RNA: Small nucleolar RNA SNORA77
RNA sequence: GCAGACUCACUCUGUACUGAACUGCACUCUUCAGUUCAGGAGCUUUUCUGUCUGCAAGAGUGAUCAUCCACAGGAGCGACAACGGCCUUCUGCCUUGGAGAAGGCUGUUACAGUUGCUGUGGGGACAUUGCU
Dot-bracket structure: ((((((........(.((((.(((.......))).)))).)........))))))...........(((((((..((...(..(((((.............)))))..)...))..))))))).........